[Rfam]
RNA sequence: CUCUGGAAAGCAGCCGCCGGCGGCCGAUCGUGCCGGCGGCUCACCGAAGGGGGUAAGUCGCGGCCGACCCGCGGCGAAAUCUCUCAGGUCCUGCGACAGAG
Numbered sequence: 001c002u003c004u005g006g007a008a009a010g011c012a013g014c015c016g017c018c019g020g021c022g023g024c025c026g027a028u029c030g031u032g033c034c035g036g037c038g039g040c041u042c043a044c045c046g047a048a049g050g051g052g053g054u055a056a057g058u059c060g061c062g063g064c065c066g067a068c069c070c071g072c073g074g075c076g077a078a079a080u081c082u083c084u085c086a087g088g089u090c091c092u093g094c095g096a097c098a099g100a101g
Base pairs, nucleotide, nucleotide: 001101002100003099004098005097012041013040014039015038016037017036018035019034020033021032022031043089044088045087046085047084050083051082052081057075058074059073060072061071062070063069